The record is a 113-nucleotide RNA from Xanthomonas boreopolis, which matches "Glycine riboswitch aptamer" in Rfam. The organism belongs to Xanthomonas, within Bacteria. The match comes from Rfam's covariance-model search (60 bits).
[Rfam]
RNA sequence: CAACAAAACUCUGGAGAGACCGGUUAGAUCCGGCGCCGAAGGGGCACCAGACGCAGGCAGGCCACGCCGCGCCGCGUCUCCAAACUCUCAGGCAAAAGGACAGAGGGGCACGA
Numbered sequence: 001c002a003a004c005a006a007a008a009c010u011c012u013g014g015a016g017a018g019a020c021c022g023g024u025u026a027g028a029u030c031c032g033g034c035g036c037c038g039a040a041g042g043g044g045c046a047c048c049a050g051a052c053g054c055a056g057g058c059a060g061g062c063c064a065c066g067c068c069g070c071g072c073c074g075c076g077u078c079u080c081c082a083a084a085c086u087c088u089c090a091g092g093c094a095a096a097a098g099g100a101c102a103g104a105g106g107g108g109c110a111c112g113a
Stems, first nucleotide, its partner, number of pairs: 009105005020033004035093003038089002042087003049079006